[Rfam]
RNA: MIR8007 microRNA precursor family
RNA sequence: AUGUGGCACUUUUCGAAUUUUGAGAUUCAAACAAGUCUAUCUUUGACCGUAAGUUUUCAUAGAUCCUUUUAACAUUUUGAAUUAUUAAUUAUUGUGACUUAUAGUACUUUUUACGUAGUUUACAAAUAUAUAAAUUUCAUUUCAAAAAAAUUGAAGAUUUCAUAUGCAAAUUUCCGAUCAAAGUUAAACUGUUUGACUCUCGAAAAAUGAAAAGUGUCACAUAA
Numbered sequence: 001a002u003g004u005g006g007c008a009c010u011u012u013u014c015g016a017a018u019u020u021u022g023a024g025a026u027u028c029a030a031a032c033a034a035g036u037c038u039a040u041c042u043u044u045g046a047c048c049g050u051a052a053g054u055u056u057u058c059a060u061a062g063a064u065c066c067u068u069u070u071a072a073c074a075u076u077u078u079g080a081a082u083u084a085u086u087a088a089u090u091a092u093u094g095u096g097a098c099u100u101a102u103a104g105u106a107c108u109u110u111u112u113a114c115g116u117a118g119u120u121u122a123c124a125a126a127u128a129u130a131u132a133a134a135u136u137u138c139a140u141u142u143c144a145a146a147a148a149a150a151u152u153g154a155a156g157a158u159u160u161c162a163u164a165u166g167c168a169a170a171u172u173u174c175c176g177a178u179c180a181a182a183g184u185u186a187a188a189c190u191g192u193u194u195g196a197c198u199c200u201c202g203a204a205a206a207a208u209g210a211a212a213a214g215u216g217u218c219a220c221a222u223a224a
Stems, first nucleotide, its partner, number of pairs: 001222015018205008027196007035189002038186002042182005048176002051173006057166001059163002061160005067154002075147007083139001093132004099125002102122003106119003